Rfam assigns this 73-nucleotide RNA sequence from Alkalibaculum sporogenes to the family "tRNA". A search with the family's covariance model found it, with a score of 63 bits.
[Rfam]
RNA sequence: GCCCACGUAGCUCAGUAGGUAGAGCACCACCAUGGUAAGGUGGGGGUCACCGGUUCGAGUCCGGUCUUGGGCU
Numbered sequence: 001g002c003c004c005a006c007g008u009a010g011c012u013c014a015g016u017a018g019g020u021a022g023a024g025c026a027c028c029a030c031c032a033u034g035g036u037a038a039g040g041u042g043g044g045g046g047u048c049a050c051c052g053g054u055u056c057g058a059g060u061c062c063g064g065u066c067u068u069g070g071g072c073u
Stems, first nucleotide, its partner, number of pairs: 001072005007066001010025004027043005049065005